[Rfam]
RNA sequence: UAUACGAGUUUUUGAAAAUAAAGGAGCAAUAACCACUUUCUUGUUCUAGCAAGAGUGUUGGUAUUGCUCUUUU
Numbered sequence: 001u002a003u004a005c006g007a008g009u010u011u012u013u014g015a016a017a018a019u020a021a022a023g024g025a026g027c028a029a030u031a032a033c034c035a036c037u038u039u040c041u042u043g044u045u046c047u048a049g050c051a052a053g054a055g056u057g058u059u060g061g062u063a064u065u066g067c068u069c070u071u072u073u
Stems, first nucleotide, its partner, number of pairs: 020073012035058002038055005
RNA: Plastid-psbA-1 3UTR RNA